[Rfam]
RNA sequence: GGCUAGGGCUGUGUGGCUGGGGCUAGGGCUCUGUGGCUGGGGAUAGGGCUGGGGCUGGGGCCCUAGCCCCAGCCGCACAGCCCUAGCC
Numbered sequence: 001g002g003c004u005a006g007g008g009c010u011g012u013g014u015g016g017c018u019g020g021g022g023c024u025a026g027g028g029c030u031c032u033g034u035g036g037c038u039g040g041g042g043a044u045a046g047g048g049c050u051g052g053g054g055c056u057g058g059g060g061c062c063c064u065a066g067c068c069c070c071a072g073c074c075g076c077a078c079a080g081c082c083c084u085a086g087c088c
Base pairs, nucleotide, nucleotide: 001088002087003086004085006083007082008081009080014075015074016073017072019070020069021068022067023066028061029060030059031058032057
Dot-bracket structure: ((((.((((....((((.(((((....(((((........................)))))....))))).))))....)))).))))
The family of this 88-nucleotide RNA from Oncorhynchus kisutch is "mir-25 microRNA precursor family". For this family Rfam cites "Small RNA expression and strain specificity in the rat" (Linsen et al., BMC Genomics, 2010). The organism belongs to Oncorhynchus, within Eukaryota. It scores 42 bits against the family's covariance model.